The family of this 80-nucleotide RNA sequence from Papaver nudicaule is "Small nucleolar RNA snoR14". The family's RNA type in Rfam is C/D-box small nucleolar RNA. The family has 7 seed sequences and 668 matches in Rfam 15.1. Taxonomically the source falls in Papaver (Eukaryota, Streptophytina, Tracheophyta, Mesangiospermae).

RNA sequence: GCGAAAUGACGAUAAAAUUCAUGGCUCAAAAUCACUGAAUUCUGUGAUGUUACUAAUGAAUCUCGACAUGUUCUGAUCGC
Numbered sequence: 001g002c003g004a005a006a007u008g009a010c011g012a013u014a015a016a017a018u019u020c021a022u023g024g025c026u027c028a029a030a031a032u033c034a035c036u037g038a039a040u041u042c043u044g045u046g047a048u049g050u051u052a053c054u055a056a057u058g059a060a061u062c063u064c065g066a067c068a069u070g071u072u073c074u075g076a077u078c079g080c
Stems, first nucleotide, its partner, number of pairs: 001080004